[Rfam]
RNA: MIR5272 microRNA precursor family
Organism: Medicago truncatula
RNA sequence: CUUGAUGUGAAUUGAUUUAUGUUUGGGUACCCUCACUUAAAAGUGAUUCUUAUGAAUUGAUGUUGUUUGGAUAG
Numbered sequence: 001c002u003u004g005a006u007g008u009g010a011a012u013u014g015a016u017u018u019a020u021g022u023u024u025g026g027g028u029a030c031c032c033u034c035a036c037u038u039a040a041a042a043g044u045g046a047u048u049c050u051u052a053u054g055a056a057u058u059g060a061u062g063u064u065g066u067u068u069g070g071a072u073a074g
Stems, first nucleotide, its partner, number of pairs: 011061008021053002025049004030045001032043002